The family of this 43-nucleotide RNA sequence from Xylophilus rhododendri is "Guanidine-II riboswitch aptamer (mini-ykkC)".
RNA sequence: AUGCGAGGACGACCUCGCCUCAGCAUCAGCGAGGGACGGCCCU
Numbered sequence: 001a002u003g004c005g006a007g008g009a010c011g012a013c014c015u016c017g018c019c020u021c022a023g024c025a026u027c028a029g030c031g032a033g034g035g036a037c038g039g040c041c042c043u
Base pairs, nucleotide, nucleotide: 001020003018004017005016006015007014008013032043033042034041035040
Description:
For this family Rfam cites "Identification of 22 candidate structured RNAs in bacteria using the CMfinder comparative genomics pipeline" (Weinberg et al., Nucleic Acids Res, 2007). Rfam 15.1 lists 1,589 matches to the family in 1,229 species. It scores 35 bits against the family's covariance model.